The record is a 133-nucleotide RNA sequence from Allosaccharopolyspora coralli, which matches "FMN riboswitch aptamer (RFN element)" in Rfam.
[Rfam]
RNA sequence: GUGCGCUCCGGGGCUCGGUGCAAUUCCGAACCGGCGGUGACAGUCCGCGAACCGGUGCCCGCUUCGAGCGGGACCGGCCGACCCGGUGAGAUUCCGGGACCGACGGUGACAGUCCGGAUGGGAGGUAGCGCAC
Numbered sequence: 001g002u003g004c005g006c007u008c009c010g011g012g013g014c015u016c017g018g019u020g021c022a023a024u025u026c027c028g029a030a031c032c033g034g035c036g037g038u039g040a041c042a043g044u045c046c047g048c049g050a051a052c053c054g055g056u057g058c059c060c061g062c063u064u065c066g067a068g069c070g071g072g073a074c075c076g077g078c079c080g081a082c083c084c085g086g087u088g089a090g091a092u093u094c095c096g097g098g099a100c101c102g103a104c105g106g107u108g109a110c111a112g113u114c115c116g117g118a119u120g121g122g123a124g125g126u127a128g129c130g131c132a133c
Stems, first nucleotide, its partner, number of pairs: 003131005008125002016028003030113002032102002034048004043100002052077005082098005104116003